[Rfam]
RNA sequence: UGGCCUGAAGUGAUGUUCCCAGUUCAUGUCUCUUCUCUGAGAUGUCUCAUGGAGAUAGACAGAUGCGUUUCUGAUCAGGCUU
Numbered sequence: 001u002g003g004c005c006u007g008a009a010g011u012g013a014u015g016u017u018c019c020c021a022g023u024u025c026a027u028g029u030c031u032c033u034u035c036u037c038u039g040a041g042a043u044g045u046c047u048c049a050u051g052g053a054g055a056u057a058g059a060c061a062g063a064u065g066c067g068u069u070u071c072u073g074a075u076c077a078g079g080c081u082u
Stems, first nucleotide, its partner, number of pairs: 002081004